[Rfam]
RNA sequence: ACGGUGUUCCGCUGCGGCGACAGAUUGACUGCAAGAGCAUCUG
Numbered sequence: 001a002c003g004g005u006g007u008u009c010c011g012c013u014g015c016g017g018c019g020a021c022a023g024a025u026u027g028a029c030u031g032c033a034a035g036a037g038c039a040u041c042u043g
Stems, first nucleotide, its partner, number of pairs: 003041007013033002016029001018027001

Background:
Shown here is a 43-nucleotide RNA from Planococcus halotolerans, a member of the family "Ribosomal protein L19 leader". Rfam links the family to the GO term regulation of gene expression. The base pairs follow the family's consensus structure, which was predicted with CMfinder. This family is a putative r-protein leader autoregulatory structure found in B. subtilis and other low-GC Gram-positive bacteria. It is located in the 5' untranslated regions of mRNAs encoding ribosomal protein L19 (rplS). The literature on the family includes a 1994 paper in Prog Nucleic Acid Res Mol Biol by Zengel and Lindahl, "Diverse mechanisms for regulating ribosomal protein synthesis in Escherichia coli". The family's RNA type in Rfam is cis-regulatory leader.